[Rfam]
RNA: Small nucleolar RNA SNORD103/SNORD85
Organism: Neodrepanis coruscans
RNA sequence: UCUGGCAGUGACGACACUCUUGCCCUCUCUGAGCUCAUGGGCUGAUGAGAGUUGUUCUAAUGUUCUGUGGAGCUGAGCCAGA
Numbered sequence: 001u002c003u004g005g006c007a008g009u010g011a012c013g014a015c016a017c018u019c020u021u022g023c024c025c026u027c028u029c030u031g032a033g034c035u036c037a038u039g040g041g042c043u044g045a046u047g048a049g050a051g052u053u054g055u056u057c058u059a060a061u062g063u064u065c066u067g068u069g070g071a072g073c074u075g076a077g078c079c080a081g082a
Stems, first nucleotide, its partner, number of pairs: 001082006